[Rfam]
RNA sequence: UGGUGAGGUAGAGGUUGCGAGAUGCACUAGUAAUUUUUUCGAGGCGAAACAAAGACGCCGACGACAAAGAAUGAACAGGUUGAUCGCCGAAGUGACUAUUUUCUCUUUGUUUAGAAAUAGUUGUUGGGACAGUUUCCUAAAGGGGCUGGACUGCUAUAAGAAUUUGUCGAAAUUUCUUAUAGGUGUGCUAUCUGACAA
Number, nucleotide and partner (000 for none) at each position: 001u000002g000003g000004u000005g000006a193007g192008g191009u190010a189011g188012a000013g000014g000015u000016u000017g087018c086019g085020a084021g000022a000023u000024g080025c079026a000027c000028u000029a000030g000031u000032a000033a072034u071035u070036u069037u068038u067039u066040c000041g000042a000043g000044g000045c000046g000047a000048a000049a000050c000051a000052a000053a000054g000055a000056c000057g000058c000059c000060g000061a000062c000063g000064a000065c000066a039067a038068a037069g036070a035071a034072u033073g000074a000075a000076c000077a000078g000079g025080u024081u000082g000083a000084u020085c019086g018087c017088c000089g000090a000091a125092g124093u123094g122095a121096c120097u119098a118099u117100u116101u115102u114103c000104u000105c000106u000107u000108u000109g000110u000111u000112u000113a000114g102115a101116a100117a099118u098119a097120g096121u095122u094123g093124u092125u091126g152127g151128g000129a000130c148131a147132g146133u145134u144135u143136c142137c000138u000139a000140a000141a000142g136143g135144g134145g133146c132147u131148g130149g000150a000151c127152u126153g000154c182155u181156a180157u179158a178159a177160g176161a175162a174163u000164u000165u000166g000167u000168c000169g000170a000171a000172a000173u000174u162175u161176c160177u159178u158179a157180u156181a155182g154183g000184u000185g000186u000187g000188c011189u010190a009191u008192c007193u006194g000195a000196c000197a000198a000
A member of the RNA family "Lysine riboswitch aptamer" from Listeria monocytogenes, 198 nucleotides long. Rfam describes the family as follows. Riboswitches are metabolite binding domains within certain messenger RNAs that serve as precision sensors for their corresponding targets. It is one of the family's seed sequences.